[Rfam]
RNA: Bacterial small subunit ribosomal RNA, nucleotides 939 to 1537
Organism: Atribacter laminatus
Nucleotides: 599
Base pairs, nucleotide, nucleotide: 001488002487003485004484005483007482008481009480010479011478012477013476015472016471019435020434021433022432023431024328026326027325028324029323030322031321032320033319034317035316040055041054042053043052064312065311066310067309068308069307070306077133078132079131080130081129082128083127088105091102092101093100094099108125109124110123111122112121113120114119136301137300139299140298141297142296145295146294147290148289149288150286152284153283157196158195159194160193161192162191163172164171165170175188176187177186178185202278203277204276205275207246208245209244210243211242212241213240217235221233222232223230249269250268252266253265254264255263256262332387333386334385335384336383337382338381344375345374346373349368350367354363355362356361394425399420400419401418402417403416404415405414441464442463443462444461445460446459447458491598493595496591497590501585502584503583504582506580507579508578511575512574513573514572515571516570517569518568519567520566521565522564527560529558530557531556532555535553536552537551540549541548
Number, partner (000 for none) and nucleotide at each position: 001488u002487g003485a004484c005483g006000g007482g008481g009480g010479c011478c012477c013476g014000c015472a016471c017000a018000a019435g020434c021433g022432g023431u024328g025000g026326a027325g028324c029323a030322u031321g032320u033319g034317g035316u036000u037000u038000a039000a040055u041054u042053c043052g044000a045000u046000g047000c048000a049000a050000c051000g052043c053042g054041a055040a056000g057000a058000a059000c060000c061000u062000u063000a064312c065311c066310a067309g068308g069307g070306u071000u072000u073000g074000a075000c076000a077133u078132g079131c080130u081129g082128g083127u084000g085000g086000u087000a088105g089000a090000a091102g092101c093100c094099u095000g096000a097000a098000a099094g100093g101092g102091u103000g104000a105088c106000g107000a108125c109124c110123u111122u112121c113120g114119g115000u116000u117000u118000u119114c120113c121112g122111a123110g124109g125108g126000a127083g128082c129081c130080a131079g132078c133077a134000c135000a136301g137300g138000u139299g140298c141297u142296g143000c144000a145295u146294g147290g148289u149288u150286g151000u152284c153283g154000u155000c156000a157196g158195c159194u160193c161192g162191u163172g164171u165170c166000g167000u168000g169000a170165g171164a172163u173000g174000u175188u176187g177186g178185g179000u180000u181000a182000a183000g184000u185178c186177c187176c188175g189000c190000a191162a192161c193160g194159a195158g196157c197000g198000c199000a200000a201000c202278c203277c204276u205275u206000a207246c208245c209244c210243u211242u212241a213240g214000u215000u216000g217235c218000g219000a220000c221233c222232a223230g224000g225000u226000u227000a228000u229000g230223c231000u232222u233221g234000a235217g236000c237000a238000c239000u240213c241212u242211a243210a244209g245208g246207g247000g248000a249269c250268u251000g252266c253265c254264g255263g256262u257000g258000a259000c260000a261000a262256a263255c264254c265253g266252g267000a268250g269249g270000a271000a272000g273000g274000u275205g276204g277203g278202g279000a280000u281000g282000a283153c284152g285000u286150c287000a288149a289148a290147u291000c292000c293000g294146c295145a296142u297141g298140g299139c300137c301136c302000u303000u304000a305000u306070g307069u308068c309067c310066u311065g312064g313000g314000c315000g316035a317034c318000a319033c320032a321031c322030g323029u324028g325027c326026u327000a328024c329000a330000a331000u332387g333386g334385c335384c336383a337382g338381u339000a340000c341000a342000g343000a344375g345374g346373g347000u348000u349368g350367c351000g352000a353000a354363c355362c356361c357000g358000c359000g360000a361356g362355g363354g364000g365000g366000a367350g368349c369000c370000a371000a372000u373346c374345c375344c376000a377000a378000a379000a380000a381338g382337c383336u384335g385334g386333c387332c388000c389000c390000a391000g392000u393000u394425g395000g396000g397000a398000u399420u400419g401418c402417a403416g404415g405414c406000u407000g408000c409000a410000a411000c412000u413000c414405g415404c416403c417402u418401g419400c420399a421000u422000g423000a424000a425394c426000g427000c428000g429000g430000a431023a432022u433021c434020g435019c436000u437000a438000g439000u440000a441464a442463u443462c444461g445460c446459g447458u448000a449000u450000c451000a452000g453000c454000u455000a456000c457000g458447g459446c460445g461444c462443g463442g464441u465000g466000a467000a468000u469000g470000c471016g472015u473000u474000c475000c476013c477012g478011g479010g480009c481008c482007u483005u484004g485003u486000a487002c488001a489000c490000a491598c492000c493595g494000c495000c496591c497590g498000u499000c500000a501585c502584a503583c504582c505000a506580c507579g508578a509000a510000a511575g512574u513573c514572g515571a516570u517569u518568u519567u520566a521565c522564c523000u524000g525000a526000a527560g528000u529558c530557a531556c532555u533000g534000a535553g536552c537551u538000a539000a540549c541548c542000c543000g544000c545000a546000a547000g548541g549540g550000a551537g552536g553535c554000a555532g556531g557530u558529g559000c560527c561000g562000a563000a564522g565521g566520u567519a568518g569517g570516g571515u572514c573513g574512g575511u576000g577000a578508u579507u580506g581000g582504g583503g584502u585501g586000a587000a588000g589000u590497c591496g592000u593000a594000a595493c596000a597000a598491g599000g